Eukaryotic large subunit ribosomal RNA: a 494-nucleotide part of an RNA from Microbotryum intermedium. Pairs were carried over by alignment from the consensus structure, which is taken from published work. The organism belongs to Microbotryum, within Eukaryota. On this family, see Yusupov et al., Science 2001: "Crystal structure of the ribosome at 5.5 A resolution". A search with the family's covariance model found it, with a score of 3356 bits.

[Rfam]
RNA sequence: UAGAAUAAUGUAGAUAAGGGAAGUCGGCAAAAUAGAUCCGUAACUUCGGGAAAAGGAUUGGCUCAUAGGAUAGGGUACGUCGGGGCCUUGAAUAAAGAUGAAGGACCGAGUCGGGACUACUUGGGCGCAAGCCUAGGCGGACCUGAUUUGGACUUGAUUCGGCGCUCUUGGCCAGCCCUCGGGCGUCUGGCGUACAAUUAACUAUCAACUAUGAACUGGUACGGACAAGGGGAAUCUGACUGUCUAAUUAAAACAUAGCAUUGCGAUGGCCAGAAAGUGGUGUUGACGCAAUGUGAUUUCUGCCCAGUGCUCUGAAUGUCAAAGUGAAGAAAUUCAACCAAGCGCGGGUAAACGGCGGGAGUAACUAUGACUCUCUUAAGGUAGCCAAAUGCCUCGUCAUCUAAUUAGUGACGCGCAUGAAUGGAUUAACGAGAUUCCCACUGUCCCUAUCUACUAUCUAGCGAAACCACAGCCAAGGGAACGGGCUUGGCAAA
Numbered sequence: 001u002a003g004a005a006u007a008a009u010g011u012a013g014a015u016a017a018g019g020g021a022a023g024u025c026g027g028c029a030a031a032a033u034a035g036a037u038c039c040g041u042a043a044c045u046u047c048g049g050g051a052a053a054a055g056g057a058u059u060g061g062c063u064c065a066u067a068g069g070a071u072a073g074g075g076u077a078c079g080u081c082g083g084g085g086c087c088u089u090g091a092a093u094a095a096a097g098a099u100g101a102a103g104g105a106c107c108g109a110g111u112c113g114g115g116a117c118u119a120c121u122u123g124g125g126c127g128c129a130a131g132c133c134u135a136g137g138c139g140g141a142c143c144u145g146a147u148u149u150g151g152a153c154u155u156g157a158u159u160c161g162g163c164g165c166u167c168u169u170g171g172c173c174a175g176c177c178c179u180c181g182g183g184c185g186u187c188u189g190g191c192g193u194a195c196a197a198u199u200a201a202c203u204a205u206c207a208a209c210u211a212u213g214a215a216c217u218g219g220u221a222c223g224g225a226c227a228a229g230g231g232g233a234a235u236c237u238g239a240c241u242g243u244c245u246a247a248u249u250a251a252a253a254c255a256u257a258g259c260a261u262u263g264c265g266a267u268g269g270c271c272a273g274a275a276a277g278u279g280g281u282g283u284u285g286a287c288g289c290a291a292u293g294u295g296a297u298u299u300c301u302g303c304c305c306a307g308u309g310c311u312c313u314g315a316a317u318g319u320c321a322a323a324g325u326g327a328a329g330a331a332a333u334u335c336a337a338c339c340a341a342g343c344g345c346g347g348g349u350a351a352a353c354g355g356c357g358g359g360a361g362u363a364a365c366u367a368u369g370a371c372u373c374u375c376u377u378a379a380g381g382u383a384g385c386c387a388a389a390u391g392c393c394u395c396g397u398c399a400u401c402u403a404a405u406u407a408g409u410g411a412c413g414c415g416c417a418u419g420a421a422u423g424g425a426u427u428a429a430c431g432a433g434a435u436u437c438c439c440a441c442u443g444u445c446c447c448u449a450u451c452u453a454c455u456a457u458c459u460a461g462c463g464a465a466a467c468c469a470c471a472g473c474c475a476a477g478g479g480a481a482c483g484g485g486c487u488u489g490g491c492a493a494a
Base pairs, nucleotide, nucleotide: 001460002459003458004457010454011453012452013451014450015449016448018446019445020444035059036058037057038056039055044049060217061216063214064213065212066211067210068209069206070205071204072203073202075195076194077193078192079191080190081189082188083187084173085172086171090167091166097160098159102155103154104153106151107150108149109148110147111146112145113144114143115142117140118139120137121136122135123134124133125132126131218222230439231438232437233436234435235434236433237431238430241255242254243253258294259293260292261291262290263289264288265287269281270280271279272278298425299424300423302356303355304354307353308352309349310348311347312346314345317344318343319342325336326335327334328333357375358374359373360372361371362370376380396412397411398410399409400408473490474489475488476487477486